[Rfam]
RNA sequence: AAGCGUGUUAACUGAAUGUGAGGCCUUGUUCUGAAGACCCUUUUCACAAUUUUUGGCAGGCUUAACCGAAGUUAGGCCUU
Dot-bracket structure: .....................((.(((......))).))..................(((((((((....))))))))).
The record is an 80-nucleotide RNA from Heterodera glycines, which matches "SmY spliceosomal RNA" in Rfam. For this family Rfam cites "Organization of the Caenorhabditis elegans small non-coding transcriptome: genomic features, biogenesis, and expression" (Deng et al., Genome Res, 2006). Rfam classes the family as a spliceosomal small nuclear RNA.